Rfam assigns this 145-nucleotide sequence from Gossypium mustelinum to the family "MIR7502 microRNA precursor family". Its family is annotated with RISC complex and miRNA-mediated post-transcriptional gene silencing in the Gene Ontology.
[Rfam]
RNA sequence: UGUUAAAAAAAUACAUCAAUUUAUACUAUUAAAAGCUAGUUUGACUAACAUAACAACCAAACAGUUACGCAUAAUGUGUUACAUGUACCUCGUUUUCCAUACAAGAACCAAUUUUUAAAAAUACAAAUAAAUGAAAGUUUUAACA
Numbered sequence: 001u002g003u004u005a006a007a008a009a010a011a012u013a014c015a016u017c018a019a020u021u022u023a024u025a026c027u028a029u030u031a032a033a034a035g036c037u038a039g040u041u042u043g044a045c046u047a048a049c050a051u052a053a054c055a056a057c058c059a060a061a062c063a064g065u066u067a068c069g070c071a072u073a074a075u076g077u078g079u080u081a082c083a084u085g086u087a088c089c090u091c092g093u094u095u096u097c098c099a100u101a102c103a104a105g106a107a108c109c110a111a112u113u114u115u116u117a118a119a120a121a122u123a124c125a126a127a128u129a130a131a132u133g134a135a136a137g138u139u140u141u142a143a144c145a
Base pairs, nucleotide, nucleotide: 002144003143004142005141006140007139008138012134014133015132016131019128020127021126022125024123025122027120029118030117031116032115033114034113